[Rfam]
RNA sequence: ACCGUCGCGUGCGGUGCGGCUUCAAUCCGAGGGGCUUCCGCCUCCUGGCGCACCUUCCCCGGUGCCAGGCGGUACCCGCGGAUUGAAACCACGGCGCACGCGACGCGCCAU
Number, nucleotide and partner (000 for none) at each position: 001a000002c000003c000004g000005u000006c000007g000008c000009g000010u098011g097012c096013g095014g000015u093016g092017c000018g090019g089020c000021u087022u086023c085024a084025a083026u082027c081028c080029g079030a000031g077032g076033g075034g000035c000036u074037u000038c072039c071040g070041c000042c000043u000044c069045c068046u067047g066048g065049c064050g063051c062052a000053c000054c000055u000056u000057c000058c000059c000060c000061g000062g051063u050064g049065c048066c047067a046068g045069g044070c040071g039072g038073u000074a036075c033076c032077c031078g000079c029080g028081g027082a026083u025084u024085g023086a022087a021088a000089c019090c018091a000092c016093g015094g000095c013096g012097c011098a010099c000100g000101c000102g000103a000104c000105g000106c000107g000108c000109c000110a000111u000
The record is a 111-nucleotide RNA sequence from Micropruina glycogenica, which matches "mraW RNA" in Rfam. Taxonomically the source falls in Micropruina (Bacteria, Actinomycetota, Actinomycetes, Nocardioidaceae). The family's consensus secondary structure is taken from published work.